This 121-nucleotide RNA from Aurantimonas coralicida belongs to the Rfam family "Rhizobiales sRNA Atu_C8". The literature on the family includes a 2012 paper in RNA Biol by Wilms et al., "Deep sequencing uncovers numerous small RNAs on all four replicons of the plant pathogen Agrobacterium tumefaciens". The family's RNA type in Rfam is small RNA.

RNA sequence: GACAAAGAUCAACAUUCUCGUAGUAGGACGGCGCACACGCGAGGCGGUCUAGGGACCGCCCGGCGAGAGCCACGUGUGCGCAACUCAAAGGGCCCCAGCGGCCCUUUUUUAUUGCGCCGAG
Number, nucleotide and partner (000 for none) at each position: 001g000002a000003c000004a000005a000006a000007g000008a000009u023010c000011a000012a000013c000014a000015u000016u000017c000018u000019c000020g000021u000022a000023g009024u000025a000026g117027g000028a000029c114030g000031g081032c080033g079034c078035a077036c076037a075038c074039g073040c000041g000042a000043g060044g059045c058046g057047g056048u055049c054050u000051a000052g000053g000054g049055a048056c047057c046058g045059c044060c043061c000062g000063g070064c069065g000066a000067g000068a000069g064070c063071c000072a000073c039074g038075u037076g036077u035078g034079c033080g032081c031082a000083a000084c000085u000086c000087a106088a000089a105090g104091g103092g102093c101094c100095c000096c000097a000098g000099c000100g094101g093102c092103c091104c090105u089106u087107u000108u000109u000110u000111a000112u000113u000114g029115c000116g000117c026118c000119g000120a000121g000